[Rfam]
RNA sequence: UAGAUACCCAUCAUGUCUUUUGCUCUACAAUCAGUAAAUAUUUGUGAAUGUGUAGCAAAAGACAGAAUGGUGAUCCA
Numbered sequence: 001u002a003g004a005u006a007c008c009c010a011u012c013a014u015g016u017c018u019u020u021u022g023c024u025c026u027a028c029a030a031u032c033a034g035u036a037a038a039u040a041u042u043u044g045u046g047a048a049u050g051u052g053u054a055g056c057a058a059a060a061g062a063c064a065g066a067a068u069g070g071u072g073a074u075c076c077a
Base pairs, nucleotide, nucleotide: 003075004074005073008070009069010068011067014064015063016062017061018060019059020058021057022056023055024054026052027051028050029049031047032046033045035044036043037042
RNA: mir-511 microRNA precursor family